A member of the RNA family "MIR394 microRNA precursor family" from Tetracentron sinense, 149 nucleotides long. Gene Ontology terms of the family: miRNA-mediated post-transcriptional gene silencing and RISC complex.
RNA sequence: CUUACAGAGUUUAUUGGCAUUCUGUCCACCUCCACCAAACAACUGCUUCUCCUUUUCUUUCUCUCUAGUCUCUAUCUCUGUCUAUCACUCCAUGUUUUUUUUUUUUUUUGUUAAUGGAGGUGGACAUCCUGCCAACCGAGCUCUGUUAG
Numbered sequence: 001c002u003u004a005c006a007g008a009g010u011u012u013a014u015u016g017g018c019a020u021u022c023u024g025u026c027c028a029c030c031u032c033c034a035c036c037a038a039a040c041a042a043c044u045g046c047u048u049c050u051c052c053u054u055u056u057c058u059u060u061c062u063c064u065c066u067a068g069u070c071u072c073u074a075u076c077u078c079u080g081u082c083u084a085u086c087a088c089u090c091c092a093u094g095u096u097u098u099u100u101u102u103u104u105u106u107u108u109u110g111u112u113a114a115u116g117g118a119g120g121u122g123g124a125c126a127u128c129c130u131g132c133c134a135a136c137c138g139a140g141c142u143c144u145g146u147u148a149g
Stems, first nucleotide, its partner, number of pairs: 011139001014135006023126011